[Rfam]
A member of the RNA family "RNase MRP" from Digitaria exilis, 250 nucleotides long. Rfam links the family to the GO terms ribonuclease MRP activity, rRNA processing and ribonuclease MRP complex. The organism belongs to Digitaria, within Eukaryota. It scores 82 bits against the family's covariance model.
RNA sequence: ACGCCACAGGAUGAAGUGAGCGGGCCUAACAAGCCCUGGAAAGUCCCCGGGCCCCUUGCGCAGCGAUGCGCCCACGGAGACGUGGACGGCCCACGGGCCGGCUCUCCCUGCCCGUCUGGGUUGUGGGGGGCCGAGACAUGUUUGGAGCCCAUUUCAGGGAGCCGGGCUCUGGGUUAAAUGGCCGAACUCUCACAGUUAUUCACUUAGUCCAUAUCUGGACUAACAGAACGGGGCUUACACUCCUGUGGCA
Numbered sequence: 001a002c003g004c005c006a007c008a009g010g011a012u013g014a015a016g017u018g019a020g021c022g023g024g025c026c027u028a029a030c031a032a033g034c035c036c037u038g039g040a041a042a043g044u045c046c047c048c049g050g051g052c053c054c055c056u057u058g059c060g061c062a063g064c065g066a067u068g069c070g071c072c073c074a075c076g077g078a079g080a081c082g083u084g085g086a087c088g089g090c091c092c093a094c095g096g097g098c099c100g101g102c103u104c105u106c107c108c109u110g111c112c113c114g115u116c117u118g119g120g121u122u123g124u125g126g127g128g129g130g131c132c133g134a135g136a137c138a139u140g141u142u143u144g145g146a147g148c149c150c151a152u153u154u155c156a157g158g159g160a161g162c163c164g165g166g167c168u169c170u171g172g173g174u175u176a177a178a179u180g181g182c183c184g185a186a187c188u189c190u191c192a193c194a195g196u197u198a199u200u201c202a203c204u205u206a207g208u209c210c211a212u213a214u215c216u217g218g219a220c221u222a223a224c225a226g227a228a229c230g231g232g233g234c235u236u237a238c239a240c241u242c243c244u245g246u247g248g249c250a
Stems, first nucleotide, its partner, number of pairs: 003249009014205006022036004041236003045233004059070004072085005107166004112161001116157004128150004138143001207220005
Dot-bracket structure: ..(((((((((..((((((..((((.......))))....[[[.[[[[..........((((....)))).(((((....))))).....................((((.(...((((........((((......(....)...))))...))))...).)))).................................)))))).(((((....))))).........]]]]]]]....))))))))).